[Rfam]
RNA: Streptomyces-metH RNA
Organism: Streptomyces liangshanensis
RNA sequence: CCGUCCGGCGGCCGGAAUGGCGCCCCGUUCCCGGGCCCGCCCGGCUACGCUGGCCCGGUGCGCCGUCCUCAGACGCCGCAAAGCCGACAGCCGUCGCAACCCGGGAGUACCUUCAUG
Numbered sequence: 001c002c003g004u005c006c007g008g009c010g011g012c013c014g015g016a017a018u019g020g021c022g023c024c025c026c027g028u029u030c031c032c033g034g035g036c037c038c039g040c041c042c043g044g045c046u047a048c049g050c051u052g053g054c055c056c057g058g059u060g061c062g063c064c065g066u067c068c069u070c071a072g073a074c075g076c077c078g079c080a081a082a083g084c085c086g087a088c089a090g091c092c093g094u095c096g097c098a099a100c101c102c103g104g105g106a107g108u109a110c111c112u113u114c115a116u117g
Stems, first nucleotide, its partner, number of pairs: 059080004064075004083097002086095003